[Rfam]
RNA sequence: CACCUUGCAGGGCAGGCGCGCAGCGCCGGUUGGAAUUGGAACAGGGGCCAACCACGCGCCUGCAAGGGAAGCCAGGGCCGGAAUGUCGGGGGACGUCCGGCCCUUUUUU
Dot-bracket structure: ..(((((((((((.(((((...)))))((((((..((......))..))))))..)).)))))))))......(((((((((.((((....))))))))))))).....

Overview: The family of this 109-nucleotide RNA sequence from Novilysobacter defluvii is "Xanthomonadaceae sRNA asX1". Rfam classes the family as a small RNA. The literature on the family includes a 2011 paper in Nucleic Acids Res by Schmidtke et al., "Genome-wide transcriptome analysis of the plant pathogen Xanthomonas identifies sRNAs with putative virulence functions". Pairs were carried over by alignment from the consensus structure, which was predicted with CMfinder. Lineage of the source: Bacteria > Gammaproteobacteria > Lysobacterales > Lysobacteraceae > Novilysobacter defluvii.